Small nucleolar RNA snoR109: a 105-nucleotide RNA from Glycine max. A search with the family's covariance model found it, with a score of 86 bits. It is annotated as an H/ACA-box small nucleolar RNA.

[Rfam]
RNA sequence: UGGCUGUAGCUAAAUUAAUUCAAUUUCAGAAGCUUACUGGCCGGUUGUUGUGAUAUCCUUUUUGGGUCUCUGUCAACCAAUCUGCUUACCGAGCUUCUUACAUUC
Numbered sequence: 001u002g003g004c005u006g007u008a009g010c011u012a013a014a015u016u017a018a019u020u021c022a023a024u025u026u027c028a029g030a031a032g033c034u035u036a037c038u039g040g041c042c043g044g045u046u047g048u049u050g051u052g053a054u055a056u057c058c059u060u061u062u063u064g065g066g067u068c069u070c071u072g073u074c075a076a077c078c079a080a081u082c083u084g085c086u087u088a089c090c091g092a093g094c095u096u097c098u099u100a101c102a103u104u105c
Base pairs, nucleotide, nucleotide: 028098029097030096031095032094033093034092039086040085041084043082044081045080046079047077048076049075050074

About this RNA: Rfam links the family to the GO terms RNA processing and nucleolus.